Record summary: Shown here is a 127-nucleotide RNA sequence from Myotis davidii, a member of the family "mir-9193 microRNA precursor family".
[Rfam]
RNA sequence: UUUGCACCGGGGGGGUCCCUUGGCCAGGCUUGUACCCUUUCACAAUCUGGGACCCAUCAGGGGAUAUCAGAGAGCCAGUUUCAGUCCGAUCCCUGCAGGCCAGGCCGAGGGACCCCACUGGUGCAUA
Numbered sequence: 001u002u003u004g005c006a007c008c009g010g011g012g013g014g015g016u017c018c019c020u021u022g023g024c025c026a027g028g029c030u031u032g033u034a035c036c037c038u039u040u041c042a043c044a045a046u047c048u049g050g051g052a053c054c055c056a057u058c059a060g061g062g063g064a065u066a067u068c069a070g071a072g073a074g075c076c077a078g079u080u081u082c083a084g085u086c087c088g089a090u091c092c093c094u095g096c097a098g099g100c101c102a103g104g105c106c107g108a109g110g111g112a113c114c115c116c117a118c119u120g121g122u123g124c125a126u127a
Stems, first nucleotide, its partner, number of pairs: 003125002006122001008120003012116014027101008
Taxonomically the source falls in Myotis (Eukaryota, Metazoa, Tetrapoda, Amniota).